Shown here is a 111-nucleotide RNA sequence from Iodidimonas nitroreducens, a member of the family "rpsB sRNA". NCBI's taxonomy places the organism under Bacteria, Pseudomonadati, Pseudomonadota, Iodidimonadales, Iodidimonas. By type it is a small RNA.

RNA sequence: CGCACAUGAGCCGCUGGGCAGGGUGAUCGGCAGAUCACAUCCGCCUUCCGGUGUUUCCCAUUUGGGGAAAUAUUUGGCUCAUGGAGGACGAACCGGUAAAGGAGAAGAUUA
Numbered sequence: 001c002g003c004a005c006a007u008g009a010g011c012c013g014c015u016g017g018g019c020a021g022g023g024u025g026a027u028c029g030g031c032a033g034a035u036c037a038c039a040u041c042c043g044c045c046u047u048c049c050g051g052u053g054u055u056u057c058c059c060a061u062u063u064g065g066g067g068a069a070a071u072a073u074u075u076g077g078c079u080c081a082u083g084g085a086g087g088a089c090g091a092a093c094c095g096g097u098a099a100a101g102g103a104g105a106a107g108a109u110u111a
Stems, first nucleotide, its partner, number of pairs: 001086001003084001005083007016045002028043003053071006